[Rfam]
RNA sequence: AAAGACGCAAUCAAUAUACCGUAGACAGCAACGGGGAAACCUUAAUGAAGUUGCCGAGGUGAUAUUGUCAAAGAAUUGACAACUCCCUCGUGUUUACUGAGGGAGUUUUUCACGGAUAUA
Number, nucleotide and partner (000 for none) at each position: 001a000002a000003a000004g000005a000006c000007g000008c000009a000010a000011u000012c000013a000014a000015u000016a000017u000018a000019c000020c000021g000022u000023a000024g000025a000026c000027a000028g054029c053030a052031a051032c050033g000034g041035g040036g000037a000038a000039a000040c035041c034042u000043u000044a000045a000046u000047g000048a000049a000050g032051u031052u030053g029054c028055c000056g000057a000058g000059g000060u000061g000062a000063u000064a000065u000066u000067g000068u000069c000070a000071a000072a000073g000074a000075a000076u000077u000078g000079a000080c000081a000082a000083c105084u104085c103086c102087c101088u100089c099090g098091u096092g000093u000094u000095u000096a091097c000098u090099g089100a088101g087102g086103g085104a084105g083106u000107u000108u000109u000110u000111c000112a000113c000114g000115g000116a000117u000118a000119u000120a000
A member of the RNA family "Ribosomal protein L10 leader" from Massilimicrobiota sp. An134, 120 nucleotides long. It is annotated as a cis-regulatory leader. On this family, see Zengel and Lindahl, Prog Nucleic Acid Res Mol Biol 1994: "Diverse mechanisms for regulating ribosomal protein synthesis in Escherichia coli".